[Rfam]
RNA sequence: GGACAGUCAUCGCCGAGUCCCCCAAGGCGCGAGCCGGGGGAGCCGGGGACCCACCGUCCCUGGGGUGAAUCGGACGCCCUUCCCUGAAGGGGGUCCGUAGGAGACCUUCCUGCUCCGAACCCGUCAGCUAACCCGGUAGGCGAGAAGGAAGGAAAG
Numbered sequence: 001g002g003a004c005a006g007u008c009a010u011c012g013c014c015g016a017g018u019c020c021c022c023c024a025a026g027g028c029g030c031g032a033g034c035c036g037g038g039g040g041a042g043c044c045g046g047g048g049a050c051c052c053a054c055c056g057u058c059c060c061u062g063g064g065g066u067g068a069a070u071c072g073g074a075c076g077c078c079c080u081u082c083c084c085u086g087a088a089g090g091g092g093g094u095c096c097g098u099a100g101g102a103g104a105c106c107u108u109c110c111u112g113c114u115c116c117g118a119a120c121c122c123g124u125c126a127g128c129u130a131a132c133c134c135g136g137u138a139g140g141c142g143a144g145a146a147g148g149a150a151g152g153a154a155a156g
Stems, first nucleotide, its partner, number of pairs: 011142004018041006042137006052062002063122003071097004100116004
About this RNA: A member of the RNA family "c-di-AMP riboswitch aptamer (ydaO/yuaA leader)", 156 nucleotides long. Its family is annotated with regulation of gene expression and cyclic-di-AMP binding in the Gene Ontology. The match comes from Rfam's covariance-model search (89 bits). Rfam's curators write: This family represents a conserved RNA structure found upstream of the ydaO and yuaA genes in Bacillus subtilis and related genes in other bacteria.